The record is a 239-nucleotide sequence from Cellulomonas persica, which matches "Actinobacteria sRNA Ms_IGR-5" in Rfam.
The literature on the family includes a 2013 paper in RNA by Li et al., "Identification of small RNAs in Mycobacterium smegmatis using heterologous Hfq".
The pairing is the family consensus, mapped onto this sequence.
A search with the family's covariance model found it, with a score of 75 bits.
Lineage of the source: Bacteria > Bacillati > Actinomycetota > Cellulomonadaceae > Cellulomonas.
Rfam classes the family as a small RNA.
RNA sequence: ACACACGGGAAGGAGGUGGUCCGAGAGAUGAAGUACUCCAGGACGCGUGAGGUGGCUGCUCGCUAGUCGCCCGAGCACUUCGGACGGAUUGCAUGGUCCGCCCGCAGAGCCCAGCCGGAUCAUCAGGACCCGGCAGGGCGGCGAGCGAAUCUCCAGCAGUCACCGCAGCCCGUGGGAGCCGCGAACUCGUCCCUCGCGGCAGGGCCCCGUCAGGGGUACCGGCCCACGGGCUGUCCCAU
Numbered sequence: 001a002c003a004c005a006c007g008g009g010a011a012g013g014a015g016g017u018g019g020u021c022c023g024a025g026a027g028a029u030g031a032a033g034u035a036c037u038c039c040a041g042g043a044c045g046c047g048u049g050a051g052g053u054g055g056c057u058g059c060u061c062g063c064u065a066g067u068c069g070c071c072c073g074a075g076c077a078c079u080u081c082g083g084a085c086g087g088a089u090u091g092c093a094u095g096g097u098c099c100g101c102c103c104g105c106a107g108a109g110c111c112c113a114g115c116c117g118g119a120u121c122a123u124c125a126g127g128a129c130c131c132g133g134c135a136g137g138g139c140g141g142c143g144a145g146c147g148a149a150u151c152u153c154c155a156g157c158a159g160u161c162a163c164c165g166c167a168g169c170c171c172g173u174g175g176g177a178g179c180c181g182c183g184a185a186c187u188c189g190u191c192c193c194u195c196g197c198g199g200c201a202g203g204g205c206c207c208c209g210u211c212a213g214g215g216g217u218a219c220c221g222g223c224c225c226a227c228g229g230g231c232u233g234u235c236c237c238a239u
Stems, first nucleotide, its partner, number of pairs: 015060006061147004066142002069139004075134001166233011179199006